[Rfam]
A member of the RNA family "Streptomyces-metH RNA" from Streptomyces sp. VN1, 143 nucleotides long.
The source organism's lineage runs through Bacteria, Bacillati, Actinomycetota, Actinomycetes and Streptomyces.
RNA sequence: CUCGUCCGUCUCGUGGACGCCCCGACCAUCCGCCGCCGGUCCCCGCUACCCUGGCGGCGUGCGUUCUCCCCGGGGCACCCCGCCGGGCGGCACCGGGCAGACGCAAAGCCGACAGCCGUCGCAUCCUAGGGAGCCCCUUCAUG
Numbered sequence: 001c002u003c004g005u006c007c008g009u010c011u012c013g014u015g016g017a018c019g020c021c022c023c024g025a026c027c028a029u030c031c032g033c034c035g036c037c038g039g040u041c042c043c044c045g046c047u048a049c050c051c052u053g054g055c056g057g058c059g060u061g062c063g064u065u066c067u068c069c070c071c072g073g074g075g076c077a078c079c080c081c082g083c084c085g086g087g088c089g090g091c092a093c094c095g096g097g098c099a100g101a102c103g104c105a106a107a108g109c110c111g112a113c114a115g116c117c118g119u120c121g122c123a124u125c126c127u128a129g130g131g132a133g134c135c136c137c138u139u140c141a142u143g
Base pairs, nucleotide, nucleotide: 060105061104062103063102066100067099069097070096071095072094073093108122109121111120112119113118
Rfam classes the family as a small RNA.